[Rfam]
RNA: Enterococcus sRNA EF0605_EF0606
RNA sequence: AGGGGUAUCCCAAUAUCACUCUCUAGGGGUGACUCAGAGCAGGGGAAGGAGUUACCCCUAAAAAGUAUGUUAGAAUGAUUUUAUCGCAUCAUAUCCUUUUUUAUGUAAUUAGUUGAUAAAAUCUAUCUGUACUUAUAUUUAACGACUGAAAUCGGUCACUUACUGAAAAAACAUCU
Numbered sequence: 001a002g003g004g005g006u007a008u009c010c011c012a013a014u015a016u017c018a019c020u021c022u023c024u025a026g027g028g029g030u031g032a033c034u035c036a037g038a039g040c041a042g043g044g045g046a047a048g049g050a051g052u053u054a055c056c057c058c059u060a061a062a063a064a065g066u067a068u069g070u071u072a073g074a075a076u077g078a079u080u081u082u083a084u085c086g087c088a089u090c091a092u093a094u095c096c097u098u099u100u101u102u103a104u105g106u107a108a109u110u111a112g113u114u115g116a117u118a119a120a121a122u123c124u125a126u127c128u129g130u131a132c133u134u135a136u137a138u139u140u141a142a143c144g145a146c147u148g149a150a151a152u153c154g155g156u157c158a159c160u161u162a163c164u165g166a167a168a169a170a171a172c173a174u175c176u
Base pairs, nucleotide, nucleotide: 001059002058003057004056005055006054007053009051010049011048016044017043019042020041021039022038023037024036026035027034028033063134064133065132066131067130068129072128073127074126077123078122079121080120081119082118083117084116085115086114087112090105091104092103093102144157145156146155147154148153